[Rfam]
RNA sequence: GUGAAAUUAAUCACAAACAAACUUAUACCCCUUUGUUUGACCGUGAAAAUUUCUCCCAUCCCCUUUGUUAAUAAAAAAAGGCCUUGCCUUGAGACAGCAAGCCCUUUUU
Numbered sequence: 001g002u003g004a005a006a007u008u009a010a011u012c013a014c015a016a017a018c019a020a021a022c023u024u025a026u027a028c029c030c031c032u033u034u035g036u037u038u039g040a041c042c043g044u045g046a047a048a049a050u051u052u053c054u055c056c057c058a059u060c061c062c063c064u065u066u067g068u069u070a071a072u073a074a075a076a077a078a079a080g081g082c083c084u085u086g087c088c089u090u091g092a093g094a095c096a097g098c099a100a101g102c103c104c105u106u107u108u109u
Stems, first nucleotide, its partner, number of pairs: 003053006011046004018039005025034001069074001078106004083101005
RNA Staph. aureus E (RoxS): a 109-nucleotide RNA from Niallia taxi. By type it is a small RNA. The family's consensus secondary structure is taken from published work. From the family's description: It was shown to be regulated by the presence of nitric oxide (NO). In Bacillus subtilis it controls expression of genes with functions related to oxidative stress and oxidation-reduction reactions and it was renamed RoxS (for related to oxidative stress). It scores 90 bits against the family's covariance model. The literature on the family includes a 2009 paper in Nucleic Acids Res by Geissmann et al., "A search for small noncoding RNAs in Staphylococcus aureus reveals a conserved sequence motif for regulation". Gene Ontology term of the family: regulation of translational initiation.